[Rfam]
Nucleotides: 099
Base pairs, nucleotide, nucleotide: 002036003035004034009029010028011027012026013025038099039098040097041096042095050085051084052083053082054081055080
Number, partner (000 for none) and nucleotide at each position: 001000a002036g003035u004034c005000g006000g007000u008000c009029c010028a011027c012026a013025c014000a015000c016000g017000u018000a019000c020000u021000a022000a023000u024000a025013g026012u027011g028010u029009g030000g031000g032000a033000a034004g035003a036002c037000a038099g039098c040097u041096a042095g043000c044000a045000a046000a047000a048000c049000a050085c051084c052083g053082c054081g055080u056000u057000u058000a059000a060000u061000a062000u063000g064000u065000u066000u067000a068000u069000u070000u071000g072000g073000u074000u075000u076000a077000a078000g079000c080055a081054c082053g083052c084051g085050g086000g087000c088000a089000a090000a091000u092000u093000a094000c095042c096041u097040a098039g099038c
The family of this 99-nucleotide sequence is "Hairpin ribozyme 1 from viruses-like metatranscriptomes". Pairs were carried over by alignment from the consensus structure, which is taken from published work.